mir-214 microRNA precursor family: a 101-nucleotide RNA from Oryzias latipes. On this family, see Shao et al., Gene 2008: "Identification of novel chicken microRNAs and analysis of their genomic organization". The base pairs follow the family's consensus structure, which was predicted with RNAalifold. Its family is annotated with miRNA-mediated post-transcriptional gene silencing and RISC complex in the Gene Ontology.

RNA sequence: GAGCUAAAGUUGCAGUGUGUCUGCCUAUCUACACUUGCUGUGCAGAAUAUCCUCCAACCUGUACAGCAGGCACAGACAGGCAGAUAAACAAAACAGAGCGC
Numbered sequence: 001g002a003g004c005u006a007a008a009g010u011u012g013c014a015g016u017g018u019g020u021c022u023g024c025c026u027a028u029c030u031a032c033a034c035u036u037g038c039u040g041u042g043c044a045g046a047a048u049a050u051c052c053u054c055c056a057a058c059c060u061g062u063a064c065a066g067c068a069g070g071c072a073c074a075g076a077c078a079g080g081c082a083g084a085u086a087a088a089c090a091a092a093a094c095a096g097a098g099c100g101c
Base pairs, nucleotide, nucleotide: 018086019085022082023081024080025079026078028076029075030074034070036068037067038066039065040064041063043061044060045059